[Rfam]
RNA sequence: CUUGCUCUAACGGGGUGCCGACCGCGGCUGCGGUUUGCUGAGAGGCUGAAAGCCAACCCGAAGAACCUGAUCCGGCUUGUACCGGCGGAGGGAUUAGACGCAUCAAAGCG
Number, nucleotide and partner (000 for none) at each position: 001c000002u000003u000004g000005c000006u098007c097008u096009a095010a094011c060012g059013g058014g057015g000016u000017g038018c037019c000020g035021a034022c033023c032024g031025c000026g000027g000028c000029u000030g000031c024032g023033g022034u021035u020036u000037g018038c017039u000040g000041a000042g000043a000044g000045g053046c052047u051048g000049a000050a000051a047052g046053c045054c000055a000056a000057c014058c013059c012060g011061a000062a000063g000064a000065a000066c091067c090068u089069g000070a000071u000072c085073c084074g083075g082076c000077u000078u000079g000080u000081a000082c075083c074084g073085g072086c000087g000088g000089a068090g067091g066092g000093a000094u010095u009096a008097g007098a006099c000100g000101c000102a000103u000104c000105a000106a000107a000108g000109c000110g000
The record is a 110-nucleotide RNA sequence from Hoeflea prorocentri, which matches "TPP riboswitch aptamer (THI element)" in Rfam. Gene Ontology term of the family: thiamine pyrophosphate binding. Rfam's curators write: Vitamin B(1) in its active form thiamin pyrophosphate (TPP) is an essential coenzyme that is synthesised by coupling of pyrimidine and thiazole moieties in bacteria. The previously detected thiamin-regulatory element, thi box was extended, resulting in a new, highly conserved RNA secondary structure, the THI element, which is widely distributed in eubacteria and also occurs in some archaea. Analysis of operon structures identified a large number of new candidate thiamin-regulated genes, mostly transporters, in various prokaryotic organisms. Taxonomically the source falls in Hoeflea (Bacteria, Pseudomonadota, Alphaproteobacteria, Hyphomicrobiales).